RNA sequence: AUAUCUCUUCAGGGCAGGGUGCAAUUCCCUACUGGCGGUAAAGUCCGCGACUCCCCGCGAGGGGACUGAACCGGUGCGACUCCGGUACCAACGGUACAGUCCGGAUGGAAGACGGGAUAA
Numbered sequence: 001a002u003a004u005c006u007c008u009u010c011a012g013g014g015c016a017g018g019g020u021g022c023a024a025u026u027c028c029c030u031a032c033u034g035g036c037g038g039u040a041a042a043g044u045c046c047g048c049g050a051c052u053c054c055c056c057g058c059g060a061g062g063g064g065a066c067u068g069a070a071c072c073g074g075u076g077c078g079a080c081u082c083c084g085g086u087a088c089c090a091a092c093g094g095u096a097c098a099g100u101c102c103g104g105a106u107g108g109a110a111g112a113c114g115g116g117a118u119a120a
Base pairs, nucleotide, nucleotide: 003118004117005116006115007114009112010111017029018028019027031100032099033090034089035048036047037046038045043088044087052065053064070086071085072084073083074082092103093102094101